[Rfam]
RNA sequence: GUUGCAGAGCCAAUUUGGCAUUCUGUCCACCUCCCUAACCGAGAUUUCCUCGAUCGUUAUGCCUUCUGAAUCAGUCUUUUGGAGGCGGCCAGCAUGUCAAACUGGCUCUGUAAA
Numbered sequence: 001g002u003u004g005c006a007g008a009g010c011c012a013a014u015u016u017g018g019c020a021u022u023c024u025g026u027c028c029a030c031c032u033c034c035c036u037a038a039c040c041g042a043g044a045u046u047u048c049c050u051c052g053a054u055c056g057u058u059a060u061g062c063c064u065u066c067u068g069a070a071u072c073a074g075u076c077u078u079u080u081g082g083a084g085g086c087g088g089c090c091a092g093c094a095u096g097u098c099a100a101a102c103u104g105g106c107u108c109u110g111u112a113a114a
Base pairs, nucleotide, nucleotide: 011104015100016099017098018097019096020095024091025090027088028087030085031084032083033082034081

Source information
Shown here is a 114-nucleotide RNA from Morus notabilis, a member of the family "MIR394 microRNA precursor family". A reference for the family is Jones-Rhoades and Bartel (2004), "Computational identification of plant microRNAs and their targets, including a stress-induced miRNA", Mol Cell. Rfam 15.1 lists 724 matches to the family in 216 species. The match comes from Rfam's covariance-model search (62 bits). The base pairs follow the family's consensus structure, which was predicted with WAR.